RNA: tRNA
RNA sequence: GCCGGAGUGGCGGAAUUGGCAGACGCGGUGGAUUCAAAAUCCACUGGUGGCAACACCUUGUGGGUUCGAGUCCCACCUCCGGUA
Dot-bracket structure: (((((((..(((...........))).(((((.......)))))...............(((((.......)))))))))))).
Numbered sequence: 001g002c003c004g005g006a007g008u009g010g011c012g013g014a015a016u017u018g019g020c021a022g023a024c025g026c027g028g029u030g031g032a033u034u035c036a037a038a039a040u041c042c043a044c045u046g047g048u049g050g051c052a053a054c055a056c057c058u059u060g061u062g063g064g065u066u067c068g069a070g071u072c073c074c075a076c077c078u079c080c081g082g083u084a
Stems, first nucleotide, its partner, number of pairs: 001083007010026003028044005060076005